[Rfam]
RNA: MIR391 microRNA precursor family
RNA sequence: GCAAAUAAAGGUUCGCUUCGCAGGAGAGAUAGCGCCAUCACAUCUUCUUAAGAGUUUAGAAGAUGGUGACGGUAUCUCUCCUACGCAACAAUCCUUGUAUAUGC
Numbered sequence: 001g002c003a004a005a006u007a008a009a010g011g012u013u014c015g016c017u018u019c020g021c022a023g024g025a026g027a028g029a030u031a032g033c034g035c036c037a038u039c040a041c042a043u044c045u046u047c048u049u050a051a052g053a054g055u056u057u058a059g060a061a062g063a064u065g066g067u068g069a070c071g072g073u074a075u076c077u078c079u080c081c082u083a084c085g086c087a088a089c090a091a092u093c094c095u096u097g098u099a100u101a102u103g104c
Base pairs, nucleotide, nucleotide: 001104002103003102005100006099007098008096009095010094013091015089017087019085020084022082023081024080025079026078027077028076029075030074031073033071034070036068037067038066039065040064041062044054045053046052